Shown here is a 176-nucleotide RNA sequence from Lactobacillus xujianguonis, a member of the family "Lysine riboswitch aptamer".

[Rfam]
RNA sequence: CAAUGCAAUAGAGGUUGCGGCAAAGACAAAGUUGGUGGGAGCACACGAAUGCACUGAAAGCCAAUGUAAGCUUCGUCGCCGAAAUGAAAUUCUUAUUCGUGAGAGGAUUUCGUUGGGCUACAGGAGAAGAUCCUGUAGACUGUCCUGGUUCGUCCCCAGGGAGCGCUAUAAGAUUU
Numbered sequence: 001c002a003a004u005g006c007a008a009u010a011g012a013g014g015u016u017g018c019g020g021c022a023a024a025g026a027c028a029a030a031g032u033u034g035g036u037g038g039g040a041g042c043a044c045a046c047g048a049a050u051g052c053a054c055u056g057a058a059a060g061c062c063a064a065u066g067u068a069a070g071c072u073u074c075g076u077c078g079c080c081g082a083a084a085u086g087a088a089a090u091u092c093u094u095a096u097u098c099g100u101g102a103g104a105g106g107a108u109u110u111c112g113u114u115g116g117g118c119u120a121c122a123g124g125a126g127a128a129g130a131u132c133c134u135g136u137a138g139a140c141u142g143u144c145c146u147g148g149u150u151c152g153u154c155c156c157c158a159g160g161g162a163g164c165g166c167u168a169u170a171a172g173a174u175u176u
Stems, first nucleotide, its partner, number of pairs: 008169004017079005023073003031065006083114012115141002118138008143161006
Dot-bracket structure: .......((((.....(((((.(((.....((((((.......................)))))).....))).)))))...((((((((((((........))))))))))))((.((((((((.....)))))))).)).((((((.......))))))....)))).......
A search with the family's covariance model found it, with a score of 85 bits. The organism belongs to Lactobacillus, within Bacteria. Rfam links the family to the GO term lysine biosynthetic process.